[Rfam]
Record summary
A member of the RNA family "MIR8008 microRNA precursor family" from Solanum commersonii, 55 nucleotides long.

RNA sequence: AAUCCCAGAAAAGCGGCGGACAGAGUGGUUUUGUCCGUCGCUUUUCUGGGAUUUU
Number, nucleotide and partner (000 for none) at each position: 001a053002a052003u051004c050005c049006c048007a047008g046009a045010a044011a043012a042013g041014c040015g039016g038017c037018g036019g035020a034021c033022a000023g000024a000025g000026u000027g000028g000029u000030u000031u000032u000033g021034u020035c019036c018037g017038u016039c015040g014041c013042u012043u011044u010045u009046c008047u007048g006049g005050g004051a003052u002053u001054u000055u000
Rfam links the family to the GO terms miRNA-mediated post-transcriptional gene silencing and RISC complex.
The base pairs follow the family's consensus structure, which was predicted with RNAalifold.